[Rfam]
RNA sequence: GACGAAUCUAUUGGUCGCCGAGCCUGCCCAUUACCGUGGGCAGGGGAGGGCGCCGAAAAGAGGAAUCG
Numbered sequence: 001g002a003c004g005a006a007u008c009u010a011u012u013g014g015u016c017g018c019c020g021a022g023c024c025u026g027c028c029c030a031u032u033a034c035c036g037u038g039g040g041c042a043g044g045g046g047a048g049g050g051c052g053c054c055g056a057a058a059a060g061a062g063g064a065a066u067c068g
Stems, first nucleotide, its partner, number of pairs: 011056003016052004023044009
Dot-bracket structure: ..........(((..((((...(((((((((....)))))))))....)))).)))............

Description
Shown here is a 68-nucleotide RNA sequence from Ramlibacter pinisoli, a member of the family "ilvH RNA".